Annotation
Rfam assigns this 130-nucleotide RNA sequence to the family "Small nucleolar RNA SNORA20". Rfam describes the family as follows. ACA20 is a member of the H/ACA class of snoRNA that guide the sites of modification of uridines to pseudouridines. The family's consensus secondary structure was predicted with ILM.
[Rfam]
RNA sequence: CUUCCCAUUUAUUUGCUGGUAUAGUCUCACAAUGAUAUGGCCAGUUAUACUUAUGGGAAAAAAUAAUAUUGGGCCAUCGUAUAUUGACAUGAGUAACUAUUUUCACCUCUUCUGCAUGGACUAUCUAUAU
Numbered sequence: 001c002u003u004c005c006c007a008u009u010u011a012u013u014u015g016c017u018g019g020u021a022u023a024g025u026c027u028c029a030c031a032a033u034g035a036u037a038u039g040g041c042c043a044g045u046u047a048u049a050c051u052u053a054u055g056g057g058a059a060a061a062a063a064u065a066a067u068a069u070u071g072g073g074c075c076a077u078c079g080u081a082u083a084u085u086g087a088c089a090u091g092a093g094u095a096a097c098u099a100u101u102u103u104c105a106c107c108u109c110u111u112c113u114g115c116a117u118g119g120a121c122u123a124u125c126u127a128u129a130u
Stems, first nucleotide, its partner, number of pairs: 003058006015045006022037002025035002070123003074119003079115003086109002090105001091103002093100002
It is annotated as an H/ACA-box small nucleolar RNA.
Clan: SNORA20 clan.